[Rfam]
RNA: MIR480 microRNA precursor family
Organism: Populus tomentosa
RNA sequence: UAAUUUGUUUAAAGUAUAUCAUCAUCUAAUUAUGGCAGACUAACAUCUACCUACUUAGAAUUACUACUUAGAAUUACUCGUGAGAAUUGUUGUGUGAAUAAUAA
Numbered sequence: 001u002a003a004u005u006u007g008u009u010u011a012a013a014g015u016a017u018a019u020c021a022u023c024a025u026c027u028a029a030u031u032a033u034g035g036c037a038g039a040c041u042a043a044c045a046u047c048u049a050c051c052u053a054c055u056u057a058g059a060a061u062u063a064c065u066a067c068u069u070a071g072a073a074u075u076a077c078u079c080g081u082g083a084g085a086a087u088u089g090u091u092g093u094g095u096g097a098a099u100a101a102u103a104a
Base pairs, nucleotide, nucleotide: 005101006100007099008097009096012093014091018087019086023082024081025080027076028075029074030073031072